[Rfam]
Shown here is a 100-nucleotide sequence from Sulfobacillus acidophilus, a member of the family "Bacterial small signal recognition particle RNA".
For this family Rfam cites "SRPDB: Signal Recognition Particle Database" (Rosenblad et al., Nucleic Acids Res, 2003).
Clan: SRP clan.

RNA sequence: GAUUGGGUCCCGCGCGGACGGCCCCUGUGAACCCCGUCAGGCCCGGAAGGGAGCAGCGGUAAGCAGAUCGGCUGUGGUGCCGUGGGAGUGCCUGAUCGGU
Numbered sequence: 001g002a003u004u005g006g007g008u009c010c011c012g013c014g015c016g017g018a019c020g021g022c023c024c025c026u027g028u029g030a031a032c033c034c035c036g037u038c039a040g041g042c043c044c045g046g047a048a049g050g051g052a053g054c055a056g057c058g059g060u061a062a063g064c065a066g067a068u069c070g071g072c073u074g075u076g077g078u079g080c081c082g083u084g085g086g087a088g089u090g091c092c093u094g095a096u097c098g099g100u
Base pairs, nucleotide, nucleotide: 004094005093006092007091008090009086010085011084012083013082014081015077018075019074020073021072022071025066026065027064028063034059035058036057037056042051043050044049